A member of the RNA family "radC RNA" from Plasticicumulans lactativorans, 159 nucleotides long.
RNA sequence: AUCCUCAGGCCAUGCGUUGCUGACAGUUGUCAGCGCCAUGCCCAGGCAGUCGAGGCCUUCAAGACUGCGGCGCGGAUCACCGUGCGGGUCGUUUCGUUCUCCGGGCGCACCUGCGUCCAUCCACCUCACCCUCAAGGGAUCGACCUCCCUUGCGGGCGG
Numbered sequence: 001a002u003c004c005u006c007a008g009g010c011c012a013u014g015c016g017u018u019g020c021u022g023a024c025a026g027u028u029g030u031c032a033g034c035g036c037c038a039u040g041c042c043c044a045g046g047c048a049g050u051c052g053a054g055g056c057c058u059u060c061a062a063g064a065c066u067g068c069g070g071c072g073c074g075g076a077u078c079a080c081c082g083u084g085c086g087g088g089u090c091g092u093u094u095c096g097u098u099c100u101c102c103g104g105g106c107g108c109a110c111c112u113g114c115g116u117c118c119a120u121c122c123a124c125c126u127c128a129c130c131c132u133c134a135a136g137g138g139a140u141c142g143a144c145c146u147c148c149c150u151u152g153c154g155g156g157c158g159g
Base pairs, nucleotide, nucleotide: 011040012039013038014037019034020033021032022031023030024029046068047067048066049065050064051063054090055089056088057087070085071084072083073082074081075080125159126158133152134151135150136149137148138147139146

The family's consensus secondary structure is taken from published work. The organism belongs to Plasticicumulans, within Bacteria. A search with the family's covariance model found it, with a score of 90 bits.